[Rfam]
RNA sequence: CUGUGCCUUGCUUCAACAGUGGUUGGAUGGAACAC
Numbered sequence: 001c002u003g004u005g006c007c008u009u010g011c012u013u014c015a016a017c018a019g020u021g022g023u024u025g026g027a028u029g030g031a032a033c034a035c
Stems, first nucleotide, its partner, number of pairs: 002034003007030002010028001012027005017021001
Dot-bracket structure: .(((..((.(.((((((...).)))))))).))).